[Rfam]
RNA: mir-2060 microRNA precursor family
Organism: Branchiostoma floridae
RNA sequence: GUUUGUAGAUGGUGUUCAGCAGCAAGAACAGGUAUGUUCACCUGUUUGUAGAUGGUGUUCAGCAGCAAGAACAGGUAUGUUCACCU
Numbered sequence: 001g002u003u004u005g006u007a008g009a010u011g012g013u014g015u016u017c018a019g020c021a022g023c024a025a026g027a028a029c030a031g032g033u034a035u036g037u038u039c040a041c042c043u044g045u046u047u048g049u050a051g052a053u054g055g056u057g058u059u060c061a062g063c064a065g066c067a068a069g070a071a072c073a074g075g076u077a078u079g080u081u082c083a084c085c086u
Base pairs, nucleotide, nucleotide: 001072002071010067011066013064014063015062016061018059019058020057021056023054024053026047028045029044030043031042032041033040